This 117-nucleotide sequence from Trema orientale belongs to the Rfam family "Small nucleolar RNA Z278". The source organism's lineage runs through Eukaryota, Viridiplantae, Embryophyta, Cannabaceae and Trema. Rfam links the family to the GO terms RNA processing and nucleolus. The base pairs follow the family's consensus structure, which was predicted with PFOLD.
RNA sequence: GCCCAUGAUGACUCAAUCCAACUUUUUGAGGUGUGGUGGAUCCAAGACCCUGUUUUACAGGGAGAACCUACUUGGUUAAGCUACAUUACACAUGAUAUUACUGGAUUUAACUGAGGC
Numbered sequence: 001g002c003c004c005a006u007g008a009u010g011a012c013u014c015a016a017u018c019c020a021a022c023u024u025u026u027u028g029a030g031g032u033g034u035g036g037u038g039g040a041u042c043c044a045a046g047a048c049c050c051u052g053u054u055u056u057a058c059a060g061g062g063a064g065a066a067c068c069u070a071c072u073u074g075g076u077u078a079a080g081c082u083a084c085a086u087u088a089c090a091c092a093u094g095a096u097a098u099u100a101c102u103g104g105a106u107u108u109a110a111c112u113g114a115g116g117c
Stems, first nucleotide, its partner, number of pairs: 001117003048062005